The record is a 90-nucleotide sequence from Eragrostis curvula, which matches "MIR2275 microRNA precursor family" in Rfam. The family's consensus secondary structure was predicted with RNAalifold. NCBI's taxonomy places the organism under Eukaryota, Viridiplantae, Tracheophyta, Poales, Eragrostis.
[Rfam]
RNA sequence: AAGCUGAAGGUGAGCGUUGGAUGGAACCAAAUCCACAGCUGCAACUUGAAGCACAGGAUUUGGUUUCCUCCAAUGUCUCAUCUUCGACUG
Number, nucleotide and partner (000 for none) at each position: 001a000002a000003g000004c000005u086006g085007a084008a083009g000010g000011u080012g079013a078014g077015c000016g074017u073018u072019g071020g070021a069022u000023g067024g066025a065026a064027c063028c062029a061030a060031a000032u058033c057034c000035a000036c000037a000038g000039c000040u000041g000042c000043a000044a000045c000046u000047u000048g000049a000050a000051g000052c000053a000054c000055a000056g000057g033058a032059u000060u030061u029062g028063g027064u026065u025066u024067c023068c000069u021070c020071c019072a018073a017074u016075g000076u000077c014078u013079c012080a011081u000082c000083u008084u007085c006086g005087a000088c000089u000090g000